[Rfam]
RNA sequence: ACAGCAAUUUUGCGUAAUCUGAUAUUGAGAUUGAAACACAUGAAA
Numbered sequence: 001a002c003a004g005c006a007a008u009u010u011u012g013c014g015u016a017a018u019c020u021g022a023u024a025u026u027g028a029g030a031u032u033g034a035a036a037c038a039c040a041u042g043a044a045a
Base pairs, nucleotide, nucleotide: 005033006032007031008030009029010028011027012026014025015024017023
RNA: HtrA 5' UTR thermometer
Organism: Kluyvera genomosp. 3